RNA sequence: AUUGGUACAGUAACAAACCGGGUUUGCUCUGCUGGCGGGCAGAUCAUCCGUUCCUUUCCUACUGCUUCAGGCAGACCGCCAC
Number, nucleotide and partner (000 for none) at each position: 001a000002u000003u000004g000005g000006u000007a000008c000009a000010g000011u000012a000013a000014c000015a000016a000017a000018c000019c000020g000021g000022g000023u000024u000025u046026g045027c000028u043029c042030u041031g040032c039033u000034g080035g079036c078037g077038g076039g032040c031041a030042g029043a028044u000045c026046a025047u000048c000049c000050g000051u000052u000053c000054c000055u000056u000057u000058c000059c000060u000061a000062c074063u073064g072065c071066u070067u000068c000069a000070g066071g065072c064073a063074g062075a000076c038077c037078g036079c035080c034081a000082c000

This 82-nucleotide RNA sequence from Cyanobium usitatum belongs to the Rfam family "Cyanobacterial ribosomal protein S1 leader". On this family, see Weinberg et al., Nucleic Acids Res 2007: "Identification of 22 candidate structured RNAs in bacteria using the CMfinder comparative genomics pipeline". Taxonomically the source falls in Cyanobium usitatum (Bacteria, Bacillati, Prochlorococcaceae, Cyanobium). The base pairs follow the family's consensus structure, which is taken from published work. Rfam's curators write: cyano-S1 is a ncRNA recognized in the 5-prime region of genes encoding 30S ribosomal protein S1, it has been proposed as an cis regulation element.